[Rfam]
RNA: Ribosomal protein L20 leader
Nucleotides: 130
Base pairs, nucleotide, nucleotide: 011026012025013024014023015022016021028052029051030050034047035046036045037044038043093117094116095115096114097113098112100111101110102109
Number, partner (000 for none) and nucleotide at each position: 001000g002000a003000g004000a005000a006000a007000a008000a009000g010000c011026a012025g013024a014023a015022g016021c017000a018000c019000c020000c021016g022015c023014u024013u025012c026011u027000c028052g029051c030050c031000u032000a033000a034047g035046g036045g037044a038043c039000a040000g041000u042000g043038g044037u045036c046035c047034c048000g049000g050030g051029g052028c053000a054000g055000a056000u057000a058000u059000u060000a061000g062000u063000g064000a065000a066000a067000u068000u069000a070000a071000u072000u073000c074000c075000g076000c077000u078000a079000a080000a081000a082000a083000c084000g085000g086000a087000u088000u089000a090000g091000g092000g093117u094116g095115c096114u097113g098112g099000c100111u101110a102109u103000u104000a105000u106000u107000g108000g109102a110101u111100a112098c113097c114096a115095g116094c117093a118000c119000c120000u121000u122000u123000u124000u125000u126000a127000c128000a129000u130000c